[Rfam]
RNA sequence: CGCGUGCUCCGGGGUCGGUGUAAUUCCGAGCCGGCGGUGACAGUCCGCGACCCGGUCGCUGUGGUUCGGCGAUCGGUUGACCUGGUGGAAUUCCGGGACCGACGGUGAAAGUCCGGAUGGGAGGCGCACGCG
Numbered sequence: 001c002g003c004g005u006g007c008u009c010c011g012g013g014g015u016c017g018g019u020g021u022a023a024u025u026c027c028g029a030g031c032c033g034g035c036g037g038u039g040a041c042a043g044u045c046c047g048c049g050a051c052c053c054g055g056u057c058g059c060u061g062u063g064g065u066u067c068g069g070c071g072a073u074c075g076g077u078u079g080a081c082c083u084g085g086u087g088g089a090a091u092u093c094c095g096g097g098a099c100c101g102a103c104g105g106u107g108a109a110a111g112u113c114c115g116g117a118u119g120g121g122a123g124g125c126g127c128a129c130g131c132g
Stems, first nucleotide, its partner, number of pairs: 003130005009124002016028003030112002032101002034048004043099002052076004081097005103115003
Rfam assigns this 132-nucleotide sequence from Kribbella solani to the family "FMN riboswitch aptamer (RFN element)".